[Rfam]
RNA: Small nucleolar RNA SNORD103/SNORD85
Organism: Antrostomus carolinensis
RNA sequence: UCUGGCAGUGACGACACACUUGCCCUCACUGAGAACAACGUUCACUGAGGAGAGCGGUUUCAUGCGCUCAGUGGAGCCGAGCCAGA
Numbered sequence: 001u002c003u004g005g006c007a008g009u010g011a012c013g014a015c016a017c018a019c020u021u022g023c024c025c026u027c028a029c030u031g032a033g034a035a036c037a038a039c040g041u042u043c044a045c046u047g048a049g050g051a052g053a054g055c056g057g058u059u060u061c062a063u064g065c066g067c068u069c070a071g072u073g074g075a076g077c078c079g080a081g082c083c084a085g086a
Stems, first nucleotide, its partner, number of pairs: 001086006